The record is a 137-nucleotide RNA sequence from Steroidobacter agaridevorans, which matches "radC RNA" in Rfam.
The organism belongs to Steroidobacter, within Bacteria.
[Rfam]
RNA sequence: UCUCUCACGCACCGCUGACGACAGUCGGCACUGCAGGCAGCUAUCGGUCUCUGCGGCUGCCCUGCGAUUUUCGCAGCGACCGAAGCCAGUCCGCACGGCAUCGUUCUACGCGGACGAUCGUCACCUGACGAUGAUGC
Number, nucleotide and partner (000 for none) at each position: 001u000002c000003u000004c000005u000006c033007a032008c000009g031010c000011a000012c000013c000014g029015c028016u027017g026018a025019c024020g000021a000022c000023a000024g019025u018026c017027g016028g015029c014030a000031c009032u007033g006034c000035a000036g000037g060038c059039a058040g057041c056042u055043a000044u000045c000046g081047g080048u079049c078050u000051c000052u000053g000054c000055g042056g041057c040058u039059g038060c037061c000062c076063u075064g074065c073066g072067a071068u000069u000070u000071u067072c066073g065074c064075a063076g062077c000078g049079a048080c047081c046082g000083a000084a000085g000086c000087c000088a000089g000090u000091c000092c000093g000094c000095a000096c000097g000098g000099c000100a000101u000102c000103g000104u000105u000106c000107u000108a000109c000110g137111c136112g135113g000114a000115c000116g000117a132118u131119c130120g129121u128122c127123a000124c000125c000126u000127g122128a121129c120130g119131a118132u117133g000134a000135u112136g111137c110
About this RNA: The family's RNA type in Rfam is cis-regulatory element. The base pairs follow the family's consensus structure, which is taken from published work.